[Rfam]
RNA sequence: UCAUUCAUGGACAAACCCCGUCGUAUAAUCUUGGGAAUAUGGCUCAAAAGUCUCUACAAAGCUGCCGCAAAUAGCUUUGCUACGAGGGGGAGAAGGAUAUGU
Numbered sequence: 001u002c003a004u005u006c007a008u009g010g011a012c013a014a015a016c017c018c019c020g021u022c023g024u025a026u027a028a029u030c031u032u033g034g035g036a037a038u039a040u041g042g043c044u045c046a047a048a049a050g051u052c053u054c055u056a057c058a059a060a061g062c063u064g065c066c067g068c069a070a071a072u073a074g075c076u077u078u079g080c081u082a083c084g085a086g087g088g089g090g091a092g093a094a095g096g097a098u099a100u101g102u
Stems, first nucleotide, its partner, number of pairs: 018088002021085005029049001031047005058078007

Purine riboswitch aptamer: a 102-nucleotide sequence from Evansella caseinilytica.